The family of this 74-nucleotide RNA sequence from Phrynocephalus forsythii is "Small nucleolar RNA SNORD45".
[Rfam]
RNA sequence: GGUCAAUGAUGUCACUUGGCAUGUAUUACCUGAUUUUAAAGGUGAAGAUUAACCUCUUUUUGCACUGAGACCAA
Numbered sequence: 001g002g003u004c005a006a007u008g009a010u011g012u013c014a015c016u017u018g019g020c021a022u023g024u025a026u027u028a029c030c031u032g033a034u035u036u037u038a039a040a041g042g043u044g045a046a047g048a049u050u051a052a053c054c055u056c057u058u059u060u061u062g063c064a065c066u067g068a069g070a071c072c073a074a
Stems, first nucleotide, its partner, number of pairs: 001072004
Rfam 15.1 lists 1,629 matches to the family in 521 species. Taxonomically the source falls in Phrynocephalus (Eukaryota, Craniata, Gnathostomata, Episquamata).